Alphaproteobacteria transfer-messenger RNA: a 357-nucleotide RNA from Devosia aurantiaca. About the family: Bacterial tmRNA, also known as 10Sa RNA or SsrA, is named for its dual tRNA and mRNA-like properties. It scores 267 bits against the family's covariance model. It is annotated as a non-coding RNA gene.
[Rfam]
RNA sequence: CCAUUUGCAUGUCGUCCAACGGUCACCUAUAUAGGUCUUGCCCGCAAGGGAUAUGGCGAUAAACGGUCAUUGUAAUAAACCCAUCGGACCCGGGGCAGUACCCGGCGUCUCCACCAUCUCCUCCCGAAAGGGGUGAGCCAAUGGGGACGAAACAGGAUCGACGAGGGCGUAAAGAGUGUGCUUUUGCUCGGUGAGGUACCACCGUUAUCGGUCCGAAACUUAUAGUUGCUAAUGACAACAAUAAGGCUCCAGUCGCUCUCGCCGCCUAAGCGGUGCUAGCAUUGGGAAAUUAAGUCCUCCGCCCCUAGCCGGGCGACAGGCGGGGUUCGCAGGCACCUGGCAACAGAAGCCUGCACU
Numbered sequence: 001c002c003a004u005u006u007g008c009a010u011g012u013c014g015u016c017c018a019a020c021g022g023u024c025a026c027c028u029a030u031a032u033a034g035g036u037c038u039u040g041c042c043c044g045c046a047a048g049g050g051a052u053a054u055g056g057c058g059a060u061a062a063a064c065g066g067u068c069a070u071u072g073u074a075a076u077a078a079a080c081c082c083a084u085c086g087g088a089c090c091c092g093g094g095g096c097a098g099u100a101c102c103c104g105g106c107g108u109c110u111c112c113a114c115c116a117u118c119u120c121c122u123c124c125c126g127a128a129a130g131g132g133g134u135g136a137g138c139c140a141a142u143g144g145g146g147a148c149g150a151a152a153c154a155g156g157a158u159c160g161a162c163g164a165g166g167g168c169g170u171a172a173a174g175a176g177u178g179u180g181c182u183u184u185u186g187c188u189c190g191g192u193g194a195g196g197u198a199c200c201a202c203c204g205u206u207a208u209c210g211g212u213c214c215g216a217a218a219c220u221u222a223u224a225g226u227u228g229c230u231a232a233u234g235a236c237a238a239c240a241a242u243a244a245g246g247c248u249c250c251a252g253u254c255g256c257u258c259u260c261g262c263c264g265c266c267u268a269a270g271c272g273g274u275g276c277u278a279g280c281a282u283u284g285g286g287a288a289a290u291u292a293a294g295u296c297c298u299c300c301g302c303c304c305c306u307a308g309c310c311g312g313g314c315g316a317c318a319g320g321c322g323g324g325g326u327u328c329g330c331a332g333g334c335a336c337c338u339g340g341c342a343a344c345a346g347a348a349g350c351c352u353g354c355a356c357u
Stems, first nucleotide, its partner, number of pairs: 041050003055188005065181001068178004080167003084164003090105005106149007189204004195214002198212003323338004329354006